A member of the RNA family "Small nucleolar RNA SNORD19" from Serilophus lunatus, 76 nucleotides long.
The base pairs follow the family's consensus structure.
Lineage of the source: Eukaryota > Teleostomi > Tetrapoda > Dinosauria > Serilophus.
Gene Ontology terms of the family: nucleolus and RNA processing.

[Rfam]
RNA sequence: GAAAAAUGAUGAUAUUCCUUCUGUAUCCUAUUGUUACAGUGAAGACCUCAGAUCCAACUCUGAUUUCACUCAAAGU
Numbered sequence: 001g002a003a004a005a006a007u008g009a010u011g012a013u014a015u016u017c018c019u020u021c022u023g024u025a026u027c028c029u030a031u032u033g034u035u036a037c038a039g040u041g042a043a044g045a046c047c048u049c050a051g052a053u054c055c056a057a058c059u060c061u062g063a064u065u066u067c068a069c070u071c072a073a074a075g076u
Base pairs, nucleotide, nucleotide: 001067002066003065004064